[Rfam]
This 95-nucleotide RNA sequence from Mikania micrantha belongs to the Rfam family "Small nucleolar RNA Z221/R21b".
RNA sequence: GGGCAGUGAUGAUACUUUAUGAAAGUCAUGCACCACUCUGAUCUUCAUUGUGAUUGAUAAACUUUCUAAUUACCCAUUAAUUUGCAUCUGAGCCC
Numbered sequence: 001g002g003g004c005a006g007u008g009a010u011g012a013u014a015c016u017u018u019a020u021g022a023a024a025g026u027c028a029u030g031c032a033c034c035a036c037u038c039u040g041a042u043c044u045u046c047a048u049u050g051u052g053a054u055u056g057a058u059a060a061a062c063u064u065u066c067u068a069a070u071u072a073c074c075c076a077u078u079a080a081u082u083u084g085c086a087u088c089u090g091a092g093c094c095c
Stems, first nucleotide, its partner, number of pairs: 001095004
Source information: The base pairs follow the family's consensus structure, which was predicted with WAR. Rfam links the family to the GO terms nucleolus and RNA processing.